[Rfam]
RNA sequence: CCAGGGCGGUGGUGGGUGGGGUCAGCCCCAUGGUGGCGGCUGG
Numbered sequence: 001c002c003a004g005g006g007c008g009g010u011g012g013u014g015g016g017u018g019g020g021g022u023c024a025g026c027c028c029c030a031u032g033g034u035g036g037c038g039g040c041u042g043g
Stems, first nucleotide, its partner, number of pairs: 001033003005029002

The family of this 43-nucleotide sequence from Vulpes vulpes is "Prion pseudoknot". For this family Rfam cites "Pseudoknots in prion protein mRNAs confirmed by comparative sequence analysis and pattern searching" (Barrette et al., Nucleic Acids Res, 2001). Its family is annotated with translation in the Gene Ontology. Lineage of the source: Eukaryota > Euteleostomi > Sarcopterygii > Carnivora > Vulpes. From the family's description: This family represents a predicted pseudoknot structure found in prion protein mRNA. It has been suggested that the family has a possible effect in prion protein translation. Rfam 15.1 lists 421 matches to the family in 241 species. A search with the family's covariance model found it, with a score of 50 bits.